[Rfam]
RNA sequence: UGGUUUAUGUGUGACUGGCGUAACAUGGGGGACCAUGAGGGAGCACAUGGAUGACAACGGCCGUACGCCUGGGCAGAGGUA
Numbered sequence: 001u002g003g004u005u006u007a008u009g010u011g012u013g014a015c016u017g018g019c020g021u022a023a024c025a026u027g028g029g030g031g032a033c034c035a036u037g038a039g040g041g042a043g044c045a046c047a048u049g050g051a052u053g054a055c056a057a058c059g060g061c062c063g064u065a066c067g068c069c070u071g072g073g074c075a076g077a078g079g080u081a
Stems, first nucleotide, its partner, number of pairs: 003052010015040002017069005025036004058076001060074003
RNA: ZMP/ZTP riboswitch aptamer (pfl RNA motif)
Organism: Paenibacillus solani